[Rfam]
RNA: MIR2912 microRNA precursor family
Organism: Populus tomentosa
Nucleotides: 156
Base pairs, nucleotide, nucleotide: 003154005152006151007150008147009146011145012144014142015141016140017139018138019137020136022133023132024131025130027129028128035123036122041119042118043117045115046114048112049111050110051109052108054105055104056103057102058101062098063097069091072088073087074086
Number, partner (000 for none) and nucleotide at each position: 001000u002000c003154u004000a005152g006151a007150a008147c009146u010000c011145a012144a013000g014142a015141u016140a017139u018138g019137g020136g021000c022133u023132g024131a025130a026000c027129a028128c029000u030000a031000a032000a033000c034000a035123g036122u037000a038000u039000c040000u041119g042118g043117g044000c045115u046114g047000u048112a049111g050110g051109a052108c053000a054105g055104a056103u057102u058101c059000c060000a061000a062098c063097u064000u065000c066000u067000c068000c069091g070000u071000u072088g073087u074086u075000g076000c077000u078000a079000a080000g081000a082000u083000u084000u085000g086074g087073a088072c089000u090000u091069c092000c093000a094000a095000a096000a097063a098062g099000c100000a101058g102057a103056a104055u105054u106000g107000g108052g109051u110050c111049u112048u113000g114046c115045a116000c117043u118042c119041c120000u121000c122036a123035u124000g125000a126000a127000u128028g129027u130025u131024u132023u133022a134000a135000g136020c137019c138018u139017a140016u141015g142014u143000a144012u145011u146009a147008g148000a149000u150007u151006u152005u153000c154003a155000u156000u